A member of the RNA family "Small nucleolar RNA SNORA57" from Carassius auratus, 138 nucleotides long. The family has 26 seed sequences and 1,736 matches in Rfam 15.1. It is annotated as an H/ACA-box small nucleolar RNA. The organism belongs to Carassius, within Eukaryota. The match comes from Rfam's covariance-model search (86 bits). A reference for the family is Vitali et al. (2003), "Identification of 13 novel human modification guide RNAs", Nucleic Acids Res. About the family: U99 belongs to the H/ACA class of snoRNAs which are thought to guide the sites of modification of uridines to pseudouridines, the target for this family is unknown.
RNA sequence: CCUCCUUCUAUCGGCAUACAUGUGGUUGUUCAGUACACAUGUGUGUAAUGGGGAGGAGGUAAAGAAAAGCCAGUGCUAUGUCUAUGGUUCCAGCUUGUUUAUUGUCUGCUGGUUCUAUCCUCAAUCACUGGAGCAAGC
Number, nucleotide and partner (000 for none) at each position: 001c059002c058003u057004c056005c055006u000007u000008c000009u000010a000011u000012c000013g000014g000015c045016a044017u043018a042019c041020a040021u000022g038023u000024g000025g036026u035027u000028g000029u000030u000031c000032a000033g000034u000035a026036c025037a000038c022039a000040u020041g019042u018043g017044u016045g015046u000047a000048a000049u000050g000051g000052g000053g000054a000055g005056g004057a003058g002059g001060u000061a000062a000063a000064g000065a000066a000067a000068a000069g000070c000071c130072a129073g128074u127075g126076c000077u000078a000079u000080g000081u000082c000083u000084a000085u000086g000087g000088u000089u000090c112091c111092a110093g109094c108095u000096u000097g106098u000099u000100u000101a000102u000103u000104g000105u000106c097107u000108g094109c093110u092111g091112g090113u000114u000115c000116u000117a000118u000119c000120c000121u000122c000123a000124a000125u000126c075127a074128c073129u072130g071131g000132a000133g000134c000135a000136a000137g000138c000